Rfam assigns this 68-nucleotide RNA sequence from Gordonia bronchialis to the family "ASdes TB sRNA".
NCBI's taxonomy places the organism under Bacteria, Actinomycetota, Gordoniaceae, Gordonia, Gordonia bronchialis.

[Rfam]
RNA sequence: AGGGCCGUCGGAUCCACCCCGCGGGUGACCACGAGGUAGUCGCGCAUGACGAUGCCGUGCCGGUUCUC
Numbered sequence: 001a002g003g004g005c006c007g008u009c010g011g012a013u014c015c016a017c018c019c020c021g022c023g024g025g026u027g028a029c030c031a032c033g034a035g036g037u038a039g040u041c042g043c044g045c046a047u048g049a050c051g052a053u054g055c056c057g058u059g060c061c062g063g064u065u066c067u068c
Base pairs, nucleotide, nucleotide: 005062008059011030013028015027016026017025018024035056036055037054038053040052041051042050
It is annotated as a small RNA. The family's consensus secondary structure is taken from published work. The family has 26 seed sequences and 1,192 matches in Rfam 15.1.